[Rfam]
RNA sequence: ACCUUCAUGAAUCAACAUAUUGAUUUAUAAGUACAGAUACAUCCCCUGAGUAGAUAACCAAAUUGCUGUGUGUAGUCUUUGCCCAUCUCCCACGAUGGGCUUUUUUUUGG
Number, nucleotide and partner (000 for none) at each position: 001a000002c022003c000004u000005u019006c000007a000008u000009g000010a000011a000012u000013c000014a000015a000016c000017a000018u000019a005020u000021u000022g002023a000024u000025u000026u000027a000028u000029a000030a000031g000032u048033a047034c000035a000036g044037a000038u000039a000040c000041a000042u000043c000044c036045c000046c000047u033048g032049a000050g000051u000052a000053g000054a000055u000056a000057a000058c000059c000060a000061a000062a000063u000064u072065g071066c070067u000068g000069u000070g066071u065072g064073u000074a000075g000076u000077c000078u000079u000080u000081g100082c099083c098084c097085a096086u095087c094088u000089c000090c000091c000092a000093c000094g087095a086096u085097g084098g083099g082100c081101u000102u000103u000104u000105u000106u000107u000108u000109g000110g000

The family of this 110-nucleotide RNA sequence from Shimwellia blattae is "RprA RNA". The literature on the family includes a 2001 paper in Mol Microbiol by Majdalani et al., "Regulation of RpoS by a novel small RNA: the characterization of RprA". From the family's description: Translational regulation of the stationary phase sigma factor RpoS is mediated by the formation of a double-stranded RNA stem-loop structure in the upstream region of the rpoS messenger RNA, occluding the translation initiation site. It is annotated as a small RNA. The source organism's lineage runs through Bacteria, Pseudomonadati, Pseudomonadota, Enterobacteriaceae and Shimwellia blattae. Its family is annotated with mRNA binding in the Gene Ontology. The match comes from Rfam's covariance-model search (82 bits).